[Rfam]
RNA: Plastid-psbM 3UTR RNA
RNA sequence: AGUAUGGUAGAAAGAUUCCUAUUUCUUUCUACCAUACUCUCUAUUAUAUUAUUGUUAUGCA
Numbered sequence: 001a002g003u004a005u006g007g008u009a010g011a012a013a014g015a016u017u018c019c020u021a022u023u024u025c026u027u028u029c030u031a032c033c034a035u036a037c038u039c040u041c042u043a044u045u046a047u048a049u050u051a052u053u054g055u056u057a058u059g060c061a
Stems, first nucleotide, its partner, number of pairs: 001038015
Dot-bracket structure: (((((((((((((((........))))))))))))))).......................